[Rfam]
RNA sequence: AUCCCACCUGGAGAUGGCAUUCUCCUUUAACCGCUCAGAUAGAGCCGAUGAUGCCUGAAAACGC
Numbered sequence: 001a002u003c004c005c006a007c008c009u010g011g012a013g014a015u016g017g018c019a020u021u022c023u024c025c026u027u028u029a030a031c032c033g034c035u036c037a038g039a040u041a042g043a044g045c046c047g048a049u050g051a052u053g054c055c056u057g058a059a060a061a062c063g064c
Stems, first nucleotide, its partner, number of pairs: 010025004016055006033045004
RNA: Fluoride riboswitch aptamer (crcB RNA motif)